RNA sequence: CUUGUUAACUAGGGGAGUCCAAUAAGUUGGGCUGAGAGAAAACGCGUUGAAGAUUUUCGACCCUUUGGACCUGAUCUGGCUCAUACCAGCGUGGGGAAGUUAGACUAUACACCA
Numbered sequence: 001c002u003u004g005u006u007a008a009c010u011a012g013g014g015g016a017g018u019c020c021a022a023u024a025a026g027u028u029g030g031g032c033u034g035a036g037a038g039a040a041a042a043c044g045c046g047u048u049g050a051a052g053a054u055u056u057u058c059g060a061c062c063c064u065u066u067g068g069a070c071c072u073g074a075u076c077u078g079g080c081u082c083a084u085a086c087c088a089g090c091g092u093g094g095g096g097a098a099g100u101u102a103g104a105c106u107a108u109a110c111a112c113c114a
Base pairs, nucleotide, nucleotide: 006102007101008100009099010098011064012063013062014061017032018031019030020029021028039057040056041055042054070095071094072093073092076089077088078087079086
A member of the RNA family "TPP riboswitch aptamer (THI element)" from Halalkalibacter nanhaiisediminis, 114 nucleotides long. From the family's description: Vitamin B(1) in its active form thiamin pyrophosphate (TPP) is an essential coenzyme that is synthesised by coupling of pyrimidine and thiazole moieties in bacteria. The source organism's lineage runs through Bacteria, Bacillota, Caryophanales, Bacillaceae and Halalkalibacter.